[Rfam]
Nucleotides: 118
Stems, first nucleotide, its partner, number of pairs: 001015005016041006023034004046117001048094005053087001054081002057078003061074001063072002099114006
Number, partner (000 for none) and nucleotide at each position: 001015g002014a003013u004012g005011g006000u007000a008000g009000g010000u011005c012004c013003a014002u015001c016041a017040g018039u019038a020037u021036c022000g023034a024033c025032g026031u027000u028000c029000a030000a031026g032025c033024g034023u035000a036021g037020g038019u039018g040017c041016u042000a043000a044000a045000c046117c047000g048094c049093u050092u051091c052090c053087c054081g055080a056000u057078g058077c059076u060000g061074g062000c063072u064071u065000a066000g067000u068000a069000a070000u071064a072063a073000a074061c075000u076059g077058g078057u079000g080055u081054u082000a083000a084000a085000c086000g087053g088000u089000a090052g091051g092050a093049a094048g095000a096000a097000a098000a099114g100113g101112c102111u103110a104109c105000a106000u107000g108000a109104g110103u111102a112101g113100u114099c115000a116000g117046g118000u